RNA: c-di-GMP-I riboswitch aptamer
Organism: Pelotomaculum propionicicum
RNA sequence: UUUACGAAAGGGCUAACUCUUCGAAAGGAGGGGGCGCAAAGCUGCGGGCCUACGGCGGGAUCAACCGCUAAGGCAGCCGGGCCGCCGAA
Numbered sequence: 001u002u003u004a005c006g007a008a009a010g011g012g013c014u015a016a017c018u019c020u021u022c023g024a025a026a027g028g029a030g031g032g033g034g035c036g037c038a039a040a041g042c043u044g045c046g047g048g049c050c051u052a053c054g055g056c057g058g059g060a061u062c063a064a065c066c067g068c069u070a071a072g073g074c075a076g077c078c079g080g081g082c083c084g085c086c087g088a089a
Stems, first nucleotide, its partner, number of pairs: 012037002017032006041082003045079003048074003055068004